[Rfam]
RNA sequence: CUGUCUCAGUGUUCAUCCCCUGAUCAAGGAUGCCCGAAACGGUGAGGCGGAAAGCAAAUUAAAUAACGUCAACCCAUCGGGACGGUUGGCCAGUUAAGAAGUGAGGAUUCAUUCUUAUGGCCAAUUAUUAUGGGAAGUCCUGUGUGGAUUCUCA
Numbered sequence: 001c002u003g004u005c006u007c008a009g010u011g012u013u014c015a016u017c018c019c020c021u022g023a024u025c026a027a028g029g030a031u032g033c034c035c036g037a038a039a040c041g042g043u044g045a046g047g048c049g050g051a052a053a054g055c056a057a058a059u060u061a062a063a064u065a066a067c068g069u070c071a072a073c074c075c076a077u078c079g080g081g082a083c084g085g086u087u088g089g090c091c092a093g094u095u096a097a098g099a100a101g102u103g104a105g106g107a108u109u110c111a112u113u114c115u116u117a118u119g120g121c122c123a124a125u126u127a128u129u130a131u132g133g134g135a136a137g138u139c140c141u142g143u144g145u146g147g148a149u150u151c152u153c154a
Stems, first nucleotide, its partner, number of pairs: 001050005007044002010041004014032005033081005068149003072145002089121003100113005
This 154-nucleotide sequence belongs to the Rfam family "DUF2800 RNA". The family's consensus secondary structure is taken from published work.